[Rfam]
RNA sequence: GUACAUGCGUAGAUGAGACCUCGUAUAAUGCCGGGAAUAUGGCUCGGCAGUUUCUACCAAGCGACCGUGAAUCGCUUGCCUACGAGGUCGUUGCCAUGUGAA
Numbered sequence: 001g002u003a004c005a006u007g008c009g010u011a012g013a014u015g016a017g018a019c020c021u022c023g024u025a026u027a028a029u030g031c032c033g034g035g036a037a038u039a040u041g042g043c044u045c046g047g048c049a050g051u052u053u054c055u056a057c058c059a060a061g062c063g064a065c066c067g068u069g070a071a072u073c074g075c076u077u078g079c080c081u082a083c084g085a086g087g088u089c090g091u092u093g094c095c096a097u098g099u100g101a102a
Base pairs, nucleotide, nucleotide: 018088019087020086021085022084023083024082025081029049030048031047032046033045034044035043058078059077060076061075062074063073064072

The record is a 102-nucleotide RNA sequence from Alicyclobacillus hesperidum, which matches "Purine riboswitch aptamer" in Rfam. Its family is annotated with purine nucleobase biosynthetic process in the Gene Ontology. The organism belongs to Alicyclobacillus, within Bacteria. A search with the family's covariance model found it, with a score of 83 bits. Pairs were carried over by alignment from the consensus structure, which is taken from published work.